RNA sequence: CGCAGAGUGGAGCAGCGGUUAGCUCGGGAGUCUCAUAAUCUCCAGAUCGUCGGUUCGAAUCCGAUCUCUGCUA
Dot-bracket structure: .((((((..((((........)))).((((.........)))).....(((((.......)))))))))))..
RNA: tRNA